[Rfam]
RNA sequence: GGAUGUGCCGGGCGAUUUGGCAGCGACACCUUCUCACCAUCCAUUGAUCGCUAGGGCAAGUUCGGCUGAUCUGGCUGCAUAGAUCGGUGUCCCCUCAUCGGCGCUCAUCCGUGUUCGUCCCUCCCGAUGCUCUGCGCUCGGUGGCAGCGGACUCCGACCCCCGAGGGACCGGCAACGGCUUCUUCGUCGAGGUCGCGGGUUUAGGCGUAGCGACGGCUCCCUGCUAGACCAAACUCCACGGGCGAGGCGAGUAGGCGAGCUGGAACUCCGACUACAGCAUCCACAUCCAGAUCGGCACUGCACGUGGCAGUCUGCCUGUUUU
Numbered sequence: 001g002g003a004u005g006u007g008c009c010g011g012g013c014g015a016u017u018u019g020g021c022a023g024c025g026a027c028a029c030c031u032u033c034u035c036a037c038c039a040u041c042c043a044u045u046g047a048u049c050g051c052u053a054g055g056g057c058a059a060g061u062u063c064g065g066c067u068g069a070u071c072u073g074g075c076u077g078c079a080u081a082g083a084u085c086g087g088u089g090u091c092c093c094c095u096c097a098u099c100g101g102c103g104c105u106c107a108u109c110c111g112u113g114u115u116c117g118u119c120c121c122u123c124c125c126g127a128u129g130c131u132c133u134g135c136g137c138u139c140g141g142u143g144g145c146a147g148c149g150g151a152c153u154c155c156g157a158c159c160c161c162c163g164a165g166g167g168a169c170c171g172g173c174a175a176c177g178g179c180u181u182c183u184u185c186g187u188c189g190a191g192g193u194c195g196c197g198g199g200u201u202u203a204g205g206c207g208u209a210g211c212g213a214c215g216g217c218u219c220c221c222u223g224c225u226a227g228a229c230c231a232a233a234c235u236c237c238a239c240g241g242g243c244g245a246g247g248c249g250a251g252u253a254g255g256c257g258a259g260c261u262g263g264a265a266c267u268c269c270g271a272c273u274a275c276a277g278c279a280u281c282c283a284c285a286u287c288c289a290g291a292u293c294g295g296c297a298c299u300g301c302a303c304g305u306g307g308c309a310g311u312c313u314g315c316c317u318g319u320u321u322u
Stems, first nucleotide, its partner, number of pairs: 001110003005104006014096002019094002025091006034083002038077002041074003046071004050066003118172002121167003124141004129137002142164001144162001149160002210268001212266001220263002223260002229255002233252002236247002289322003292318001294316003297311005
The family of this 322-nucleotide RNA is "7SK RNA".
7SK was discovered as an abundant small nuclear RNA in the mid-70s but a possible function has only recently been suggested. Two independent studies have found that 7SK RNA binds the CDK9/cyclin T complex (known as elongation factor P-TEFb). P-TEFb activates transcription by phosphorylating the C-terminal domain of RNA polymerase II. This process is negatively regulated by the 7SK RNP. The secondary structure of 7SK RNA shown here was proposed by Wasserman and Steitz on the basis of chemical modification and enzymatic cleavage experiments. This family contains a number of annotated pseudogenes and 7SK derived repeats. The threshold is artificially high to minimise the pseudogene count.
Clan: 7SK clan.
Rfam 15.1 lists 49,373 matches to the family in 668 species.